[Rfam]
RNA sequence: CGAGAGAUCCCAGGUUAGGGAAUUCGGCAAAUUAGCCCCGUACCCUUGGUAUAAGGGGUGCCUGCCUUGUGGAAAGGCAGGUCGCAGUGACCAGGGGGGGCCGACUGUUUAAUAAAAACAUAGUCAACCGCGAGUCCGAAAGGAUGAGUACGGUUGGUGAAUCCUGCCCAGUAGCGGCUUGUCAAGCAGAGUUACAACUCUGUGAAGCGCUGUCAAACGGCGGGGGUAACUAUAACCCUCUUAAGGUAACGAAGUGCCUUGCCGCUGAAUUGGCGGCUUGCAUGAACGGACCAACGAGCCCCCCACUGUCCCAAUCUGGGUCUCGGUGAACCUACUGUCUGGCGUAGAGACCAGGCA
Numbered sequence: 001c002g003a004g005a006g007a008u009c010c011c012a013g014g015u016u017a018g019g020g021a022a023u024u025c026g027g028c029a030a031a032u033u034a035g036c037c038c039c040g041u042a043c044c045c046u047u048g049g050u051a052u053a054a055g056g057g058g059u060g061c062c063u064g065c066c067u068u069g070u071g072g073a074a075a076g077g078c079a080g081g082u083c084g085c086a087g088u089g090a091c092c093a094g095g096g097g098g099g100g101c102c103g104a105c106u107g108u109u110u111a112a113u114a115a116a117a118a119c120a121u122a123g124u125c126a127a128c129c130g131c132g133a134g135u136c137c138g139a140a141a142g143g144a145u146g147a148g149u150a151c152g153g154u155u156g157g158u159g160a161a162u163c164c165u166g167c168c169c170a171g172u173a174g175c176g177g178c179u180u181g182u183c184a185a186g187c188a189g190a191g192u193u194a195c196a197a198c199u200c201u202g203u204g205a206a207g208c209g210c211u212g213u214c215a216a217a218c219g220g221c222g223g224g225g226g227u228a229a230c231u232a233u234a235a236c237c238c239u240c241u242u243a244a245g246g247u248a249a250c251g252a253a254g255u256g257c258c259u260u261g262c263c264g265c266u267g268a269a270u271u272g273g274c275g276g277c278u279u280g281c282a283u284g285a286a287c288g289g290a291c292c293a294a295c296g297a298g299c300c301c302c303c304c305a306c307u308g309u310c311c312c313a314a315u316c317u318g319g320g321u322c323u324c325g326g327u328g329a330a331c332c333u334a335c336u337g338u339c340u341g342g343c344g345u346a347g348a349g350a351c352c353a354g355g356c357a
Stems, first nucleotide, its partner, number of pairs: 001325004009320008018311003035059005044049001060082009083087001095304007102296002106120003123158008131148001134145004162290003166221003171218002174213004180209003187202005222240006241245001261277006338355005